[Rfam]
RNA sequence: AGCCUAAGUGUUGCCCGUCCGUUCCUGUCCGUGAUGGACGCGGUGUCAGAAAAGGCGCACAGCAAACCUUGUCGGGACUCUCUGAGUAAAAGCGGGACGUCUCUCUGACUCCUCGUGCUUCUGUCUCGAUAUGAACAAAU
Numbered sequence: 001a002g003c004c005u006a007a008g009u010g011u012u013g014c015c016c017g018u019c020c021g022u023u024c025c026u027g028u029c030c031g032u033g034a035u036g037g038a039c040g041c042g043g044u045g046u047c048a049g050a051a052a053a054g055g056c057g058c059a060c061a062g063c064a065a066a067c068c069u070u071g072u073c074g075g076g077a078c079u080c081u082c083u084g085a086g087u088a089a090a091a092g093c094g095g096g097a098c099g100u101c102u103c104u105c106u107g108a109c110u111c112c113u114c115g116u117g118c119u120u121c122u123g124u125c126u127c128g129a130u131a132u133g134a135a136c137a138a139a140u
Base pairs, nucleotide, nucleotide: 002056003055004054005053009048010047012045013044014043015042016040017039018038019037020036021035022034023033068133070131071130072129073128074127075126076125077124082123084121085120086119

Shown here is a 140-nucleotide RNA from Clarias magur, a member of the family "Small nucleolar RNA SNORA13". Its family is annotated with nucleolus and RNA processing in the Gene Ontology. Rfam 15.1 lists 1,034 matches to the family in 605 species. Its Rfam clan is "SNORA13 clan". A search with the family's covariance model found it, with a score of 54 bits. The organism belongs to Clarias, within Eukaryota. Rfam describes the family as follows. ACA13 is a member of the H/ACA class of snoRNA that guide the sites of modification of uridines to pseudouridines. Rfam classes the family as an H/ACA-box small nucleolar RNA.